[Rfam]
RNA sequence: UUCCUGGUGGUCCAGUGGUUAAGACUCUGCACUUCCGAUGCAGAGAGCAUAGGUUCGAUCCCUAGUCAGGAAA
Numbered sequence: 001u002u003c004c005u006g007g008u009g010g011u012c013c014a015g016u017g018g019u020u021a022a023g024a025c026u027c028u029g030c031a032c033u034u035c036c037g038a039u040g041c042a043g044a045g046a047g048c049a050u051a052g053g054u055u056c057g058a059u060c061c062c063u064a065g066u067c068a069g070g071a072a073a
Stems, first nucleotide, its partner, number of pairs: 001072007010025003027043005050064004